A member of the RNA family "Small nucleolar RNA R64/Z200 family" from Cynara cardunculus, 101 nucleotides long.
RNA sequence: UUUCUGCAAUGAUGAAUUAUGAAUUCAAUCACAUGUCAGACUUCAGAGAUUCCUUUACACAAAGGAAUCAAUGAGAUUACAUUCAUAAGUCUGAGCAGAUA
Numbered sequence: 001u002u003u004c005u006g007c008a009a010u011g012a013u014g015a016a017u018u019a020u021g022a023a024u025u026c027a028a029u030c031a032c033a034u035g036u037c038a039g040a041c042u043u044c045a046g047a048g049a050u051u052c053c054u055u056u057a058c059a060c061a062a063a064g065g066a067a068u069c070a071a072u073g074a075g076a077u078u079a080c081a082u083u084c085a086u087a088a089g090u091c092u093g094a095g096c097a098g099a100u101a
Stems, first nucleotide, its partner, number of pairs: 001101001003099005048069009
Overview:
It scores 74 bits against the family's covariance model. The family has 14 seed sequences and 748 matches in Rfam 15.1.